[Rfam]
RNA: mir-980 microRNA precursor family
Organism: Anopheles gambiae
RNA sequence: UUUACAAUUCGGUCGUUCAUUAGGUCAUCUAGCUAAAUUUUACUAAGCUAGCUGCCUAGUGAAGGGCAACAUUGUACU
Numbered sequence: 001u002u003u004a005c006a007a008u009u010c011g012g013u014c015g016u017u018c019a020u021u022a023g024g025u026c027a028u029c030u031a032g033c034u035a036a037a038u039u040u041u042a043c044u045a046a047g048c049u050a051g052c053u054g055c056c057u058a059g060u061g062a063a064g065g066g067c068a069a070c071a072u073u074g075u076a077c078u
Base pairs, nucleotide, nucleotide: 004075005074006073007072008071012067013066014065017062018061019060020059023056024055029051030050031049032048033047